[Rfam]
RNA sequence: UUUCCACUUUAGCAGAGUGAACGCUGGAGAGGAAAAGAUGUCCCCUCCAGUGUUCGCUCUGCUAAAGUGAGAA
Numbered sequence: 001u002u003u004c005c006a007c008u009u010u011a012g013c014a015g016a017g018u019g020a021a022c023g024c025u026g027g028a029g030a031g032g033a034a035a036a037g038a039u040g041u042c043c044c045c046u047c048c049a050g051u052g053u054u055c056g057c058u059c060u061g062c063u064a065a066a067g068u069g070a071g072a073a
Stems, first nucleotide, its partner, number of pairs: 001073003005069003010066001011063008020054008
Dot-bracket structure: (((.(((..(((((((((.((((((((...................)))))))).))))))))..)))).)))
Record summary:
The record is a 73-nucleotide sequence from Ixodes scapularis, which matches "mir-16 microRNA precursor family" in Rfam. The literature on the family includes a 2002 paper in Proc Natl Acad Sci U S A by Calin et al., "Frequent deletions and down-regulation of micro- RNA genes miR15 and miR16 at 13q14 in chronic lymphocytic leukemia". The family is grouped with related families in Rfam's "mir-15 clan". Rfam 15.1 lists 4,705 matches to the family in 758 species. NCBI's taxonomy places the organism under Eukaryota, Metazoa, Bilateria, Protostomia, Ixodes.